RNA: Guanidine-I riboswitch aptamer
RNA sequence: AUUUAAAUUUUCUAGGGUUCCGCAGUUUCACUGGCCUGUGACCAAGAGAGAAUUCGCAGCCUAAGAUAGCUGUGUCACGGAAGGAUAAAAGCCUGGGAGAU
Numbered sequence: 001a002u003u004u005a006a007a008u009u010u011u012c013u014a015g016g017g018u019u020c021c022g023c024a025g026u027u028u029c030a031c032u033g034g035c036c037u038g039u040g041a042c043c044a045a046g047a048g049a050g051a052a053u054u055c056g057c058a059g060c061c062u063a064a065g066a067u068a069g070c071u072g073u074g075u076c077a078c079g080g081a082a083g084g085a086u087a088a089a090a091g092c093c094u095g096g097g098a099g100a101u
Stems, first nucleotide, its partner, number of pairs: 007053006015043002020040001021038001022036001023033004055074006076096001078099001082094003